[Rfam]
RNA: Pyrrolysine insertion sequence transposase 1
RNA sequence: UAGGUGAUAGAGCAUUCUUUGACUUGCUGCAAAGAAUGUGGACAUAUUCUUGAGAACGUUGAAGUUGAAGCUUAUGAGAGAAGACAGGUCUUUGACAUUC
Numbered sequence: 001u002a003g004g005u006g007a008u009a010g011a012g013c014a015u016u017c018u019u020u021g022a023c024u025u026g027c028u029g030c031a032a033a034g035a036a037u038g039u040g041g042a043c044a045u046a047u048u049c050u051u052g053a054g055a056a057c058g059u060u061g062a063a064g065u066u067g068a069a070g071c072u073u074a075u076g077a078g079a080g081a082a083g084a085c086a087g088g089u090c091u092u093u094g095a096c097a098u099u100c
Stems, first nucleotide, its partner, number of pairs: 003048004013038009054100003058096002062092003